[Rfam]
RNA sequence: GGCUGGUUCAGAGGCAGUGACUUAUCUCAAUUUAUUGUUCACAGUUACAGAUAAAACUAUUUGUUCUACCCUUUACUCCCUUCUCACUACUGUACUUGACUAAUCAUAA
Numbered sequence: 001g002g003c004u005g006g007u008u009c010a011g012a013g014g015c016a017g018u019g020a021c022u023u024a025u026c027u028c029a030a031u032u033u034a035u036u037g038u039u040c041a042c043a044g045u046u047a048c049a050g051a052u053a054a055a056a057c058u059a060u061u062u063g064u065u066c067u068a069c070c071c072u073u074u075a076c077u078c079c080c081u082u083c084u085c086a087c088u089a090c091u092g093u094a095c096u097u098g099a100c101u102a103a104u105c106a107u108a109a
Stems, first nucleotide, its partner, number of pairs: 001105002004102005010097002014093002016088005043067002
RNA: Y RNA